[Rfam]
RNA: Selenocysteine insertion sequence 4
Organism: Abiotrophia defectiva
RNA sequence: GGCACCUGUACACGUUGCGCUGCAACGAUGGUUAAAGA
Number, nucleotide and partner (000 for none) at each position: 001g000002g000003c000004a000005c031006c030007u000008g000009u000010a000011c000012a000013c027014g026015u025016u024017g023018c022019g000020c000021u000022g018023c017024a016025a015026c014027g013028a000029u000030g006031g005032u000033u000034a000035a000036a000037g000038a000